[Rfam]
This 103-nucleotide sequence from Aliikangiella coralliicola belongs to the Rfam family "t44 RNA". About the family: This family consists of a number of bacterial RNA genes of between 135 and 170 bases in length. The t44 gene has been identified in several species of enteric bacteria but homologs have also been identified in Pseudomonas and Coxiella species. The t44 gene is found between the map and rpsB genes in all species in the full alignment apart from Shigella flexneri. The function of this RNA is unknown. The family's consensus secondary structure was predicted with LocARNA. Lineage of the source: Bacteria > Gammaproteobacteria > Oceanospirillales > Pleioneaceae > Aliikangiella.

RNA sequence: CUCGAUUGACACCUAAUUCACACGCUAUUCGACACGGCUAUCAGGGUGCUUCUUUGGUUAAUGACUGAAUGAGGUUGGUAGUUGGGAAUAGCGGAGGCAAAAC
Numbered sequence: 001c002u003c004g005a006u007u008g009a010c011a012c013c014u015a016a017u018u019c020a021c022a023c024g025c026u027a028u029u030c031g032a033c034a035c036g037g038c039u040a041u042c043a044g045g046g047u048g049c050u051u052c053u054u055u056g057g058u059u060a061a062u063g064a065c066u067g068a069a070u071g072a073g074g075u076u077g078g079u080a081g082u083u084g085g086g087a088a089u090a091g092c093g094g095a096g097g098c099a100a101a102a103c
Stems, first nucleotide, its partner, number of pairs: 023093008035084009048075005